[Rfam]
A member of the RNA family "MIR9555 microRNA precursor family" from Brassica napus, 138 nucleotides long. The match comes from Rfam's covariance-model search (127 bits).

RNA sequence: UUAUAUAGACGUAUGUAAUUACGGGGUUCUAAGCUUUACGGGAAAUCCAACCGAAAGUUUUUUAGUUUCUUAAAUAAGAAAUUUUCGGUUGGGUUUCCCGUAAAGCUUAGAACUCUGCAAUUACAUACGUUUAUAUAA
Numbered sequence: 001u002u003a004u005a006u007a008g009a010c011g012u013a014u015g016u017a018a019u020u021a022c023g024g025g026g027u028u029c030u031a032a033g034c035u036u037u038a039c040g041g042g043a044a045a046u047c048c049a050a051c052c053g054a055a056a057g058u059u060u061u062u063u064a065g066u067u068u069c070u071u072a073a074a075u076a077a078g079a080a081a082u083u084u085u086c087g088g089u090u091g092g093g094u095u096u097c098c099c100g101u102a103a104a105g106c107u108u109a110g111a112a113c114u115c116u117g118c119a120a121u122u123a124c125a126u127a128c129g130u131u132u133a134u135a136u137a138a
Base pairs, nucleotide, nucleotide: 001138002137003136004135005134006133007132008131009130010129011128012127013126014125015124016123017122018121019120020119022117023116024115025114027112028111029110030109031108032107033106034105035104036103037102038101039100040099041098078097079096080095081094082093083092084091